Rfam assigns this 132-nucleotide sequence from Microtus ochrogaster to the family "Small nucleolar RNA SNORA33". From the family's description: ACA33 is a member of the H/ACA class of snoRNA that guide the sites of modification of uridines to pseudouridines. Its family is annotated with RNA processing and nucleolus in the Gene Ontology. A search with the family's covariance model found it, with a score of 101 bits. Rfam classes the family as an H/ACA-box small nucleolar RNA.

[Rfam]
Nucleotides: 132
Stems, first nucleotide, its partner, number of pairs: 003061003007057001016043005071125004083112001085110001087108003091104002
Number, partner (000 for none) and nucleotide at each position: 001000g002000a003061g004060c005059c006000a007057g008000u009000c010000a011000g012000u013000a014000a015000a016043u017042c018041u019040g020039c021000u022000u023000a024000u025000c026000u027000c028000a029000a030000u031000g032000u033000g034000c035000u036000u037000c038000u039020g040019c041018a042017g043016a044000a045000a046000c047000u048000u049000a050000g051000a052000a053000a054000a055000g056000g057007c058000g059005g060004g061003c062000a063000a064000u065000a066000g067000u068000g069000a070000u071125g072124c073123c074122a075000u076000g077000u078000u079000a080000c081000a082000a083112g084000c085110u086000g087108u088107a089106a090000a091104g092103g093000a094000c095000a096000g097000c098000u099000g100000a101000a102000a103092u104091c105000u106089u107088u108087a109000a110085g111000a112083u113000c114000c115000c116000u117000g118000a119000a120000a121000a122074u123073g124072g125071c126000u127000g128000c129000a130000g131000c132000a